[Rfam]
Shown here is a 137-nucleotide sequence from Xenopus tropicalis, a member of the family "Small Cajal body specific RNA 11". The family's consensus secondary structure was predicted with RNAalifold. For this family Rfam cites "Cajal body-specific small nuclear RNAs: a novel class of 2'-O-methylation and pseudouridylation guide RNAs" (Darzacq et al., EMBO J, 2002). The source organism's lineage runs through Eukaryota, Deuterostomia, Vertebrata, Euteleostomi and Silurana. Gene Ontology terms of the family: RNA processing, Cajal body and nucleolus. A search with the family's covariance model found it, with a score of 66 bits. scaRNAs are a specific class of small nuclear RNAs which localise to the Cajal bodies and guide the modification of RNA polymerase II transcribed spliceosomal RNAs U1, U2, U4, U5 and U12. ACA57 belongs to the H/ACA box class of guide RNAs as it has the predicted hairpin-hinge-hairpin-tail structure, conserved H/ACA-box motifs and is found associated with GAR1.
RNA sequence: UUGUCCAUGCCGCUUGGCUCUGCCUACCCUCUGUGCAGAAUUACUGGGGGUCUGCGGCUGGACGCACAUUGACCCUGUCUGUUUAGGAGGGCCGCACACAGUUGAAGUGCACUCCCUUAAAGGCUUGACAGGACAUU
Numbered sequence: 001u002u003g004u005c006c007a008u009g010c011c012g013c014u015u016g017g018c019u020c021u022g023c024c025u026a027c028c029c030u031c032u033g034u035g036c037a038g039a040a041u042u043a044c045u046g047g048g049g050g051u052c053u054g055c056g057g058c059u060g061g062a063c064g065c066a067c068a069u070u071g072a073c074c075c076u077g078u079c080u081g082u083u084u085a086g087g088a089g090g091g092c093c094g095c096a097c098a099c100a101g102u103u104g105a106a107g108u109g110c111a112c113u114c115c116c117u118u119a120a121a122g123g124c125u126u127g128a129c130a131g132g133a134c135a136u137u
Stems, first nucleotide, its partner, number of pairs: 002064006010057002026051006033044002074132006081124004087118005094110004099104001